RNA sequence: GAUAAUAAUUGUUAGGUGAGGCUUCUGUCGGAACAUAGGCUAUCGCCCAGAAAUGUCGAGAGACGCCAAUGGGCAGAACAGAGAUUGUCGUUAAGGCAUUCUUUAGAAUAGCUUGGAAAACCAUACGUCCGUCACGUGCCAAAGCUCAACGAACGAAUGUUCUU
Dot-bracket structure: ....(((.(((([.(((..(((..(((.((((......(((((.(((((....((((....))))....)))))......((((..(((....])))..))))....))))).(((....)))....)))).)).).)))...)))..))....)).)))....
Overview: The family of this 164-nucleotide RNA from Pilibacter termitis is "M-box riboswitch aptamer (ykoK leader)". Gene Ontology terms of the family: response to magnesium ion and regulation of gene expression. Rfam's curators write: M-box riboswitch, also know as ykoK leader is described as a metaloregulatory RNA that sense divalent metals and function as a genetic control element of genes related to divalent metal transport in bacteria. It was first reported upstream of the B.subtilis ykoK gene and genes with related functions in other bacteria. Taxonomically the source falls in Pilibacter (Bacteria, Bacilli, Lactobacillales, Enterococcaceae).